[Rfam]
RNA: DUF3800-IX RNA
RNA sequence: UCCCGCCCGGCGAAAAGCCACCGGAAUGGUGGCCUGCCUGGAGCAGUUCCAGGCUAGCCGGGUGGGUUUUC
Number, nucleotide and partner (000 for none) at each position: 001u000002c066003c065004c064005g063006c062007c061008c060009g059010g058011c057012g000013a000014a000015a000016a000017g033018c032019c031020a030021c029022c028023g000024g000025a000026a000027u000028g022029g021030u020031g019032g018033c017034c000035u000036g054037c053038c052039u051040g050041g000042a000043g000044c000045a000046g000047u000048u000049c000050c040051a039052g038053g037054c036055u000056a000057g011058c010059c009060g008061g007062g006063u005064g004065g003066g002067u000068u000069u000070u000071c000